[Rfam]
RNA: mir-204 microRNA precursor family
RNA sequence: GACUCGUGGACUUCCCUUUGUCAUCCUAUGCCUGAGAAUAUAUGAAGGAGGCUGGGAAGGCAAAGGGACGUUCAAUUGUCAU
Number, nucleotide and partner (000 for none) at each position: 001g000002a000003c000004u000005c000006g000007u000008g000009g000010a000011c000012u000013u068014c067015c066016c065017u064018u063019u000020g061021u060022c000023a000024u057025c056026c055027u054028a053029u000030g052031c051032c050033u049034g000035a000036g000037a000038a000039u000040a000041u000042a000043u000044g000045a000046a000047g000048g000049a033050g032051g031052c030053u028054g027055g026056g025057a024058a000059g000060g021061c020062a000063a018064a017065g016066g015067g014068a013069c000070g000071u000072u000073c000074a000075a000076u000077u000078g000079u000080c000081a000082u000